RNA: MIR1120/MIR1122 microRNA precursor family
RNA sequence: AAACUCCCUCUGUAAAUAAAUAUAAGAGCAUUUAGAUCACUAAAGUAGUGAUCUAAAUGCUCUUAUAUUUGUUUACCGAGGGAGUAU
Numbered sequence: 001a002a003a004c005u006c007c008c009u010c011u012g013u014a015a016a017u018a019a020a021u022a023u024a025a026g027a028g029c030a031u032u033u034a035g036a037u038c039a040c041u042a043a044a045g046u047a048g049u050g051a052u053c054u055a056a057a058u059g060c061u062c063u064u065a066u067a068u069u070u071g072u073u074u075a076c077c078g079a080g081g082g083a084g085u086a087u
Base pairs, nucleotide, nucleotide: 003085004084005083007081008080009079010078013075014074015073016072017071019069020068021067022066023065024064025063026062027061028060029059030058031057032056033055034054035053036052037051038050039049040048041047